[Rfam]
The family of this 116-nucleotide RNA sequence from Paenibacillus macerans is "c-di-GMP-I riboswitch aptamer". GEMM was predicted in a large-scale screen for bacterial structured RNA regulatory elements. Genes associated with GEMM are involved in a diverse array of functions, including chemotaxis regulation, signal transduction, secretion and chitin. A search with the family's covariance model found it, with a score of 60 bits. On this family, see Weinberg et al., Nucleic Acids Res 2007: "Identification of 22 candidate structured RNAs in bacteria using the CMfinder comparative genomics pipeline".

RNA sequence: CUAAACCAAAGGCAAACUAUUCGAAAGGAUAGGACGCAAAGUUUGGAGUCUAAAGCGUGCGCAAGCCGUGGUGGGAAUUGCGGUGCAAGCUGCGCUAUGAUUGUCCGGCCGCCAUG
Numbered sequence: 001c002u003a004a005a006c007c008a009a010a011g012g013c014a015a016a017c018u019a020u021u022c023g024a025a026a027g028g029a030u031a032g033g034a035c036g037c038a039a040a041g042u043u044u045g046g047a048g049u050c051u052a053a054a055g056c057g058u059g060c061g062c063a064a065g066c067c068g069u070g071g072u073g074g075g076a077a078u079u080g081c082g083g084u085g086c087a088a089g090c091u092g093c094g095c096u097a098u099g100a101u102u103g104u105c106c107g108g109c110c111g112c113c114a115u116g
Stems, first nucleotide, its partner, number of pairs: 012037002017032006041109003045106003048101003055095004
Dot-bracket structure: ...........((...((((((....))))))...))...(((.((((((....((((.................................))))...)))..)))))).......